[Rfam]
Nucleotides: 068
Stems, first nucleotide, its partner, number of pairs: 011051002014048003027039004055067003
Number, partner (000 for none) and nucleotide at each position: 001000g002000g003000g004000a005000a006000a007000g008000g009000a010000c011051c012050u013000c014048c015047c016046g017000c018000u019000a020000a021000a022000a023000u024000c025000g026000c027039c028038c029037a030036c031000g032000u033000c034000c035000u036030g037029u038028g039027g040000a041000c042000a043000a044000c045000a046016c047015g048014g049000a050012a051011g052000u053000c054000a055067g056066u057065a058000u059000a060000u061000c062000a063000u064000c065057u066056a067055c068000a

A member of the RNA family "Bacillaceae-1 RNA" from Bacillus sp. J14TS2, 68 nucleotides long. The family's consensus secondary structure is taken from published work. Lineage of the source: Bacteria > Bacillati > Bacillota > Bacillaceae > Bacillus.